This 104-nucleotide RNA sequence from Dinoroseobacter shibae belongs to the Rfam family "TPP riboswitch aptamer (THI element)". It is one of the family's seed sequences.
RNA sequence: CAACAACCGUUGGGGUGCCCGAUUCAGGGCUGAGAGGCGCACUGUGCCGACCCAUGGAACCUGAUCCGGGCAAUACCGGCGUAGGGAACGGUCAUCGUGGCAAU
Numbered sequence: 001c002a003a004c005a006a007c008c009g010u011u012g013g014g015g016u017g018c019c020c021g022a023u024u025c026a027g028g029g030c031u032g033a034g035a036g037g038c039g040c041a042c043u044g045u046g047c048c049g050a051c052c053c054a055u056g057g058a059a060c061c062u063g064a065u066c067c068g069g070g071c072a073a074u075a076c077c078g079g080c081g082u083a084g085g086g087a088a089c090g091g092u093c094a095u096c097g098u099g100g101c102a103a104u
Stems, first nucleotide, its partner, number of pairs: 006092005011054004017030004037047004060085004066079004